[Rfam]
RNA sequence: GGUCAAUGAUGUUAUGUAAAAGGUCUGAUGCCCAGUUCCACUCCCUGCUAUCCAUCGGCUCCCAACAGCCCCUGCUCUACCCCCAGCAUGCUCUAGUUGUGCAUCGUUGGACACAGGGGCUGCUGACAUGGAGGAUAACCUCACAUCCUGUGUCUCUAAGAGAUCAUGGCGUCACGAUGUUGAUGGGCAUCCAACAGAACCAAUCACUAAGGAGUAUCAAGCUGUGGUACGGGGCUGGGCCGCUGAUAUCAACUUUCAAACUGAGACC
Numbered sequence: 001g002g003u004c005a006a007u008g009a010u011g012u013u014a015u016g017u018a019a020a021a022g023g024u025c026u027g028a029u030g031c032c033c034a035g036u037u038c039c040a041c042u043c044c045c046u047g048c049u050a051u052c053c054a055u056c057g058g059c060u061c062c063c064a065a066c067a068g069c070c071c072c073u074g075c076u077c078u079a080c081c082c083c084c085a086g087c088a089u090g091c092u093c094u095a096g097u098u099g100u101g102c103a104u105c106g107u108u109g110g111a112c113a114c115a116g117g118g119g120c121u122g123c124u125g126a127c128a129u130g131g132a133g134g135a136u137a138a139c140c141u142c143a144c145a146u147c148c149u150g151u152g153u154c155u156c157u158a159a160g161a162g163a164u165c166a167u168g169g170c171g172u173c174a175c176g177a178u179g180u181u182g183a184u185g186g187g188c189a190u191c192c193a194a195c196a197g198a199a200c201c202a203a204u205c206a207c208u209a210a211g212g213a214g215u216a217u218c219a220a221g222c223u224g225u226g227g228u229a230c231g232g233g234g235c236u237g238g239g240c241c242g243c244u245g246a247u248a249u250c251a252a253c254u255u256u257c258a259a260a261c262u263g264a265g266a267c268c
Stems, first nucleotide, its partner, number of pairs: 001268004035249002039245001043226001045224001047222002059214004063125002066122004083110005091101001133192004139186001149176004154171001156169003
The record is a 268-nucleotide sequence from Salvelinus namaycush, which matches "Small Cajal body specific RNA 6" in Rfam. The family's RNA type in Rfam is small Cajal body RNA. It scores 109 bits against the family's covariance model. NCBI's taxonomy places the organism under Eukaryota, Bilateria, Gnathostomata, Teleostei, Salvelinus. The literature on the family includes a 2002 paper in EMBO J by Darzacq et al., "Cajal body-specific small nuclear RNAs: a novel class of 2'-O-methylation and pseudouridylation guide RNAs". Pairs were carried over by alignment from the consensus structure, which is taken from published work. Rfam describes the family as follows. U88 is small Cajal body specific RNA (scaRNA). scaRNAs are a novel class of small nuclear RNAs which localise to the Cajal bodies. U88 is found associated with both fibrillarin and Gar1p and co-localises with coilin in Cajal bodies.